[Rfam]
RNA sequence: CAAAGCACCUGGCAUAGGAGAUAUCACGAUCACGAAGGUGGUUUUCCCAGGGCGAGGCUUAUCCAUUGCACUCUGAAUGUGCUGACCCCUGCGAUUAUCCCAAAUGUGGGAAACUCAACUGCAUAAUUUAUGGUAGUAGGGGACUAUGUGUGUGCUCUCCCCUG
Numbered sequence: 001c002a003a004a005g006c007a008c009c010u011g012g013c014a015u016a017g018g019a020g021a022u023a024u025c026a027c028g029a030u031c032a033c034g035a036a037g038g039u040g041g042u043u044u045u046c047c048c049a050g051g052g053c054g055a056g057g058c059u060u061a062u063c064c065a066u067u068g069c070a071c072u073c074u075g076a077a078u079g080u081g082c083u084g085a086c087c088c089c090u091g092c093g094a095u096u097a098u099c100c101c102a103a104a105u106g107u108g109g110g111a112a113a114c115u116c117a118a119c120u121g122c123a124u125a126a127u128u129u130a131u132g133g134u135a136g137u138a139g140g141g142g143a144c145u146a147u148g149u150g151u152g153u154g155c156u157c158u159c160c161c162c163u164g
Stems, first nucleotide, its partner, number of pairs: 012122003017047005023042005049090004054086001056083003060079003064075001093116002095113001096111001099109002138163006147154002
The record is a 164-nucleotide RNA from Macaca nemestrina, which matches "U1 spliceosomal RNA" in Rfam. It is annotated as a spliceosomal small nuclear RNA. It scores 120 bits against the family's covariance model. Lineage of the source: Eukaryota > Eumetazoa > Theria > Eutheria > Macaca.